The family of this 104-nucleotide RNA sequence from Plesiomonas shigelloides is "TPP riboswitch aptamer (THI element)". A search with the family's covariance model found it, with a score of 77 bits.

RNA sequence: AGGCUCUUGUCGGAGUGCCGUUUGGCUGAGACCGCAGUUGUAAUGCGGGAUCCGUGGAACCUGAUCAGGUUAAUACCUGCGAAGGGAACAAGAGUGGGUUUUCC
Numbered sequence: 001a002g003g004c005u006c007u008u009g010u011c012g013g014a015g016u017g018c019c020g021u022u023u024g025g026c027u028g029a030g031a032c033c034g035c036a037g038u039u040g041u042a043a044u045g046c047g048g049g050a051u052c053c054g055u056g057g058a059a060c061c062u063g064a065u066c067a068g069g070u071u072a073a074u075a076c077c078u079g080c081g082a083a084g085g086g087a088a089c090a091a092g093a094g095u096g097g098g099u100u101u102u103c104c
Base pairs, nucleotide, nucleotide: 006092007091008090009089010088011054012053013052014051016048017026018025019024033047034046035045036044060085061084062083066079067078068077069076
NCBI's taxonomy places the organism under Bacteria, Pseudomonadota, Gammaproteobacteria, Enterobacteriaceae, Plesiomonas shigelloides. Vitamin B(1) in its active form thiamin pyrophosphate (TPP) is an essential coenzyme that is synthesised by coupling of pyrimidine and thiazole moieties in bacteria. The base pairs follow the family's consensus structure, which is taken from published work.